[Rfam]
RNA: Phenylalanine leader peptide
RNA sequence: UAUGACCCGGCAACCGUUUUUCUUCGCAUUCUUUUUUACCUUCCCCUGAACGGGAGGCAAUUCGUCGUGUGACAGAGAAUGCGAAGACGAACACCAGGGCCUCCCAAACCGGGGGGCCUUUUUUAU
Numbered sequence: 001u002a003u004g005a006c007c008c009g010g011c012a013a014c015c016g017u018u019u020u021u022c023u024u025c026g027c028a029u030u031c032u033u034u035u036u037u038a039c040c041u042u043c044c045c046c047u048g049a050a051c052g053g054g055a056g057g058c059a060a061u062u063c064g065u066c067g068u069g070u071g072a073c074a075g076a077g078a079a080u081g082c083g084a085a086g087a088c089g090a091a092c093a094c095c096a097g098g099g100c101c102u103c104c105c106a107a108a109c110c111g112g113g114g115g116g117c118c119u120u121u122u123u124u125a126u
Base pairs, nucleotide, nucleotide: 016092017091018090019089021087022086023085024084025083026082027081028080029079030078031077032076033075034074036072037071038070039069042055043054044053045052056066057065058064096120097119098118099117100116101115102114103113104112105111